[Rfam]
RNA: c-di-GMP-I-GGC riboswitch aptamer
RNA sequence: AGCGACAACGGCAAACCCGUCGUGAGGCGGGGACGCAAAGCCACGGGACCUCCCCCGAGAGGUCAGCCGGGUUACCGAAA
Numbered sequence: 001a002g003c004g005a006c007a008a009c010g011g012c013a014a015a016c017c018c019g020u021c022g023u024g025a026g027g028c029g030g031g032g033a034c035g036c037a038a039a040g041c042c043a044c045g046g047g048a049c050c051u052c053c054c055c056c057g058a059g060a061g062g063u064c065a066g067c068c069g070g071g072u073u074a075c076c077g078a079a080a
Stems, first nucleotide, its partner, number of pairs: 003077002011036002016031006034066001039073004044069003047064005